This 84-nucleotide sequence belongs to the Rfam family "Small nucleolar RNA SNORD79". The family's RNA type in Rfam is C/D-box small nucleolar RNA. Its family is annotated with RNA processing and nucleolus in the Gene Ontology. Rfam describes the family as follows. snoRNA U79 or Z22 is found in intron 7 of the gas5 gene in humans and is also present in mice. The family is grouped with related families in Rfam's "SNORD74 clan".

RNA sequence: UACUGUUAGUGAUGAUCAAUAAAGUUAAACAGAUGGGAAUCUCUCUGAAUAAGAUUGAAGAUUGAUUGUUAAGCUGAAACAGUA
Numbered sequence: 001u002a003c004u005g006u007u008a009g010u011g012a013u014g015a016u017c018a019a020u021a022a023a024g025u026u027a028a029a030c031a032g033a034u035g036g037g038a039a040u041c042u043c044u045c046u047g048a049a050u051a052a053g054a055u056u057g058a059a060g061a062u063u064g065a066u067u068g069u070u071a072a073g074c075u076g077a078a079a080c081a082g083u084a
Stems, first nucleotide, its partner, number of pairs: 001084007